[Rfam]
The family of this 82-nucleotide sequence from Aotus nancymaae is "mir-550 microRNA precursor family". It scores 82 bits against the family's covariance model. The source organism's lineage runs through Eukaryota, Gnathostomata, Simiiformes, Platyrrhini and Aotus. The family has 9 seed sequences and 64 matches in Rfam 15.1. Rfam links the family to the GO terms miRNA-mediated post-transcriptional gene silencing and RISC complex.

RNA sequence: UGCUGGCUGCUGCAGUGCCUGAGGGAGUAAGAACCCUGUUGUAAGAUAGUGUCUUAUUCCCUUAGGCACAUCUCCAGCAAGU
Numbered sequence: 001u002g003c004u005g006g007c008u009g010c011u012g013c014a015g016u017g018c019c020u021g022a023g024g025g026a027g028u029a030a031g032a033a034c035c036c037u038g039u040u041g042u043a044a045g046a047u048a049g050u051g052u053c054u055u056a057u058u059c060c061c062u063u064a065g066g067c068a069c070a071u072c073u074c075c076a077g078c079a080a081g082u
Stems, first nucleotide, its partner, number of pairs: 002082003006078001008076002012072001015069018036049005
Dot-bracket structure: .(((.(.((..(..((((((((((((((((((...(((((....)))))..))))))))))))))))))..)..)).).)))